[Rfam]
RNA sequence: GCCGGAUCGCGCUGUCUACACGCUCCGGCAAUCUGUACGCCAGCCGCCCGUACGACACGGGGCGGCGCAGAUCAAAAAAGGA
Numbered sequence: 001g002c003c004g005g006a007u008c009g010c011g012c013u014g015u016c017u018a019c020a021c022g023c024u025c026c027g028g029c030a031a032u033c034u035g036u037a038c039g040c041c042a043g044c045c046g047c048c049c050g051u052a053c054g055a056c057a058c059g060g061g062g063c064g065g066c067g068c069a070g071a072u073c074a075a076a077a078a079a080g081g082a
Stems, first nucleotide, its partner, number of pairs: 001029006008022002011019001031072006043066007
Dot-bracket structure: ((((((.((.(.......).)).)))))).((((((......(((((((..........)))))))))))))..........
RNA: aspS RNA